About this RNA:
A member of the RNA family "MIR2629 microRNA precursor family" from Medicago truncatula, 68 nucleotides long. The family's consensus secondary structure was predicted with RNAalifold. NCBI's taxonomy places the organism under Eukaryota, Mesangiospermae, Pentapetalae, rosids, Medicago. The match comes from Rfam's covariance-model search (61 bits).
Nucleotides: 068
Stems, first nucleotide, its partner, number of pairs: 008064002011061015
Number, partner (000 for none) and nucleotide at each position: 001000g002000a003000g004000g005000u006000u007000u008064u009063c010000c011061u012060c013059g014058a015057u016056a017055g018054u019053u020052a021051a022050c023049u024048g025047c026000a027000g028000u029000c030000a031000g032000u033000u034000u035000u036000a037000u038000u039000u040000u041000u042000c043000c044000u045000c046000g047025g048024c049023a050022g051021u052020u053019a054018a055017c056016u057015g058014u059013c060012g061011a062000g063009g064008g065000g066000u067000a068000u